A member of the RNA family "Group II catalytic intron D1-D4-4", 141 nucleotides long. Pairs were carried over by alignment from the consensus structure. The sequence is in the family's curated seed alignment. For this family Rfam cites "The ins and outs of group II introns" (Bonen and Vogel, Trends Genet, 2001). About the family: Group II introns are found in rRNA, tRNA and mRNA of organelles in fungi, plants and protists, and also in mRNA in bacteria.

[Rfam]
RNA sequence: UAGCCGGUGUAAGUCCGGUCACGGUAAUUGCCAGUGAGCCGUGUAGCUAAACUCGGUGCGUUGCAGUAAUGCAGGGUACUAAGCGAGUGGAUAAAGUAACCUCGGUAAGAGGGGCGAGCAAUUAUGCAGACCGUAACAUAA
Numbered sequence: 001u002a003g004c005c006g007g008u009g010u011a012a013g014u015c016c017g018g019u020c021a022c023g024g025u026a027a028u029u030g031c032c033a034g035u036g037a038g039c040c041g042u043g044u045a046g047c048u049a050a051a052c053u054c055g056g057u058g059c060g061u062u063g064c065a066g067u068a069a070u071g072c073a074g075g076g077u078a079c080u081a082a083g084c085g086a087g088u089g090g091a092u093a094a095a096g097u098a099a100c101c102u103c104g105g106u107a108a109g110a111g112g113g114g115c116g117a118g119c120a121a122u123u124a125u126g127c128a129g130a131c132c133g134u135a136a137c138a139u140a141a
Stems, first nucleotide, its partner, number of pairs: 020043005051088004055080005064071002096115002100112004118134002